[Rfam]
RNA: OmrA-B family
RNA sequence: CCCAGAGGUAUUGAUUGGUGAGAAAGCAAUCUGCUCCCGGCAGAUUUACACCCUGUUAAAUUGCACCAACCCACGCGGAUGCGUGGGUUUUUUUU
Numbered sequence: 001c002c003c004a005g006a007g008g009u010a011u012u013g014a015u016u017g018g019u020g021a022g023a024a025a026g027c028a029a030u031c032u033g034c035u036c037c038c039g040g041c042a043g044a045u046u047u048a049c050a051c052c053c054u055g056u057u058a059a060a061u062u063g064c065a066c067c068a069a070c071c072c073a074c075g076c077g078g079a080u081g082c083g084u085g086g087g088u089u090u091u092u093u094u095u
Base pairs, nucleotide, nucleotide: 016068017067018066019065020064021057028046029045030044031043032042033041069088070087071086072085073084074083075082076081